[Rfam]
RNA sequence: AGAGGUCAUAAGUUUGAGGCCAUAGCAGAAGUGCUUCUGACGCAGCCUGUCAAAUUCCAGUGAAUCUAUGAAUUCUGCU
Dot-bracket structure: .................[[[...((((((((((.......))).]]]....(.((((....)))).).....)))))))
Shown here is a 79-nucleotide RNA sequence from Crocodylus porosus, a member of the family "Mammalian CPEB3 ribozyme". Lineage of the source: Eukaryota > Eumetazoa > Euteleostomi > Tetrapoda > Crocodylus. The match comes from Rfam's covariance-model search (39 bits). The base pairs follow the family's consensus structure, which is taken from published work.